Description:
The record is an 88-nucleotide RNA sequence from Clostridiales bacterium PH28_bin88, which matches "c-di-GMP-II-GAG riboswitch aptamer" in Rfam.

RNA sequence: UGACAGAGGGGGGACAAUGAACCCCGGGGUUUUUACGGGCGCCGUACAUCCCGGUGGCGAGUCAGUGGCGCGACCGGCCCUAUUCGUG
Numbered sequence: 001u002g003a004c005a006g007a008g009g010g011g012g013g014a015c016a017a018u019g020a021a022c023c024c025c026g027g028g029g030u031u032u033u034u035a036c037g038g039g040c041g042c043c044g045u046a047c048a049u050c051c052c053g054g055u056g057g058c059g060a061g062u063c064a065g066u067g068g069c070g071c072g073a074c075c076g077g078c079c080c081u082a083u084u085c086g087u088g
Stems, first nucleotide, its partner, number of pairs: 001088002005084002008081004013063003022057002025054001027052003037075002039071005

The literature on the family includes a 2017 paper in Proc Natl Acad Sci U S A by Weinberg et al., "Bioinformatic analysis of riboswitch structures uncovers variant classes with altered ligand specificity". NCBI's taxonomy places the organism under Bacteria, Bacillati, Bacillota, Clostridia, Eubacteriales. Its Rfam clan is "c-di-GMP_II riboswitch clan".